[Rfam]
RNA: Bacterial small signal recognition particle RNA
RNA sequence: GGCGGGUCUCCCCGCAUUACAGUGUGGUGAACCUGGUCAGGUCCGGAAGGAAGCAGCCACAGCCAAUUAUUGUAAGUGCCGGGGGUUAGGCUCGCCAAUU
Numbered sequence: 001g002g003c004g005g006g007u008c009u010c011c012c013c014g015c016a017u018u019a020c021a022g023u024g025u026g027g028u029g030a031a032c033c034u035g036g037u038c039a040g041g042u043c044c045g046g047a048a049g050g051a052a053g054c055a056g057c058c059a060c061a062g063c064c065a066a067u068u069a070u071u072g073u074a075a076g077u078g079c080c081g082g083g084g085g086u087u088a089g090g091c092u093c094g095c096c097a098a099u100u
Stems, first nucleotide, its partner, number of pairs: 004093005009085006015076001017075006025065004034059004042051003